[Rfam]
RNA sequence: AAUAUUUGAAGUAGAGAAUGUGCUUCUACGUACAUUUUAAGGUCAUAAGAGAUACAGGAAAGGGUACACCUGUCAAAUAAC
Numbered sequence: 001a002a003u004a005u006u007u008g009a010a011g012u013a014g015a016g017a018a019u020g021u022g023c024u025u026c027u028a029c030g031u032a033c034a035u036u037u038u039a040a041g042g043u044c045a046u047a048a049g050a051g052a053u054a055c056a057g058g059a060a061a062g063g064g065u066a067c068a069c070c071u072g073u074c075a076a077a078u079a080a081c
Stems, first nucleotide, its partner, number of pairs: 003079006011029005020067005031049001032043002035040001054073005
skipping-rope RNA: an 81-nucleotide RNA. Rfam's curators put it in the seed alignment. The family's RNA type in Rfam is small RNA.